[Rfam]
RNA sequence: UCCCAGUGAAGAAGAAUUCCCAUAGAUAGGAAGUGCCGUAUGACACUUUUAUCAGCAGCGGCAAC
Numbered sequence: 001u002c003c004c005a006g007u008g009a010a011g012a013a014g015a016a017u018u019c020c021c022a023u024a025g026a027u028a029g030g031a032a033g034u035g036c037c038g039u040a041u042g043a044c045a046c047u048u049u050u051a052u053c054a055g056c057a058g059c060g061g062c063a064a065c
Stems, first nucleotide, its partner, number of pairs: 014059001030049006
RNA: Small nucleolar RNA U49
Organism: Gossypium arboreum